[Rfam]
RNA sequence: CCUCCAGCGACAGACCACCCGUACAUAUGUUUCCGUGCUUGACACUACGCCUCAAUCACGUUACAAUUUAUGGGUCGCCGGUCACGAGUU
Numbered sequence: 001c002c003u004c005c006a007g008c009g010a011c012a013g014a015c016c017a018c019c020c021g022u023a024c025a026u027a028u029g030u031u032u033c034c035g036u037g038c039u040u041g042a043c044a045c046u047a048c049g050c051c052u053c054a055a056u057c058a059c060g061u062u063a064c065a066a067u068u069u070a071u072g073g074g075u076c077g078c079c080g081g082u083c084a085c086g087a088g089u090u
Stems, first nucleotide, its partner, number of pairs: 017075007025067002028065003034060004039055004

A member of the RNA family "mir-52 microRNA precursor family" from Caenorhabditis japonica, 90 nucleotides long. The base pairs follow the family's consensus structure, which was predicted with RNAalifold. A search with the family's covariance model found it, with a score of 85 bits. A reference for the family is Lau et al. (2001), "An abundant class of tiny RNAs with probable regulatory roles in Caenorhabditis elegans", Science.